[Rfam]
Shown here is a 121-nucleotide RNA sequence from Gilvimarinus sp. DA14, a member of the family "Ribosomal S15 leader". Clan: Ribosomal Protein S15 Leader clan. The organism belongs to Gilvimarinus, within Bacteria. For this family Rfam cites "Pseudoknot and translational control in the expression of the S15 ribosomal protein" (Benard et al., Biochimie, 1996). The family's consensus secondary structure is taken from published work. Rfam's curators write: The E. coli Ribosomal S15 gene 5' UTR can form two alternative structures. One that is a series of three hairpins, The other includes a pseudoknot. Rfam classes the family as a cis-regulatory leader.

RNA sequence: UGGCCUGCCUGUAAAUAUGCACGGGUACGGCUGUAAUCAAUGCAUAUUAUUAGAGGAAAUUGACAUGGCACUGAGUGCACAAGAAAAAGCUGAAAUCGUAAAAGAGUAUCAACAAGGUGAA
Numbered sequence: 001u002g003g004c005c006u007g008c009c010u011g012u013a014a015a016u017a018u019g020c021a022c023g024g025g026u027a028c029g030g031c032u033g034u035a036a037u038c039a040a041u042g043c044a045u046a047u048u049a050u051u052a053g054a055g056g057a058a059a060u061u062g063a064c065a066u067g068g069c070a071c072u073g074a075g076u077g078c079a080c081a082a083g084a085a086a087a088a089g090c091u092g093a094a095a096u097c098g099u100a101a102a103a104g105a106g107u108a109u110c111a112a113c114a115a116g117g118u119g120a121a
Stems, first nucleotide, its partner, number of pairs: 007026006047075002055072002